[Rfam]
RNA sequence: CCGCCCGUCGCACCUACCGAUUGAAUGGUCCGGUGAAGCCUCGGGAUUGUGGCUGUCUUCCUUUACUGGAGGUCAGUCGCGAGAACUUGUCUAAACCUUAUCAUUUAGAGGAAGGUGAAGUCGUAACAAGGUUUCCGUAGGUGAACCUGCGGAAGGAUCAUUA
Numbered sequence: 001c002c003g004c005c006c007g008u009c010g011c012a013c014c015u016a017c018c019g020a021u022u023g024a025a026u027g028g029u030c031c032g033g034u035g036a037a038g039c040c041u042c043g044g045g046a047u048u049g050u051g052g053c054u055g056u057c058u059u060c061c062u063u064u065a066c067u068g069g070a071g072g073u074c075a076g077u078c079g080c081g082a083g084a085a086c087u088u089g090u091c092u093a094a095a096c097c098u099u100a101u102c103a104u105u106u107a108g109a110g111g112a113a114g115g116u117g118a119a120g121u122c123g124u125a126a127c128a129a130g131g132u133u134u135c136c137g138u139a140g141g142u143g144a145a146c147c148u149g150c151g152g153a154a155g156g157a158u159c160a161u162u163a
Stems, first nucleotide, its partner, number of pairs: 001130001003127001006123002009120001011117005017111002021107001023106007032097003037092002040089001043086001047082009057072001058070003132155010
RNA: Eukaryotic small subunit ribosomal RNA, nucleotides 1633 to 1795
Organism: Nitzschia inconspicua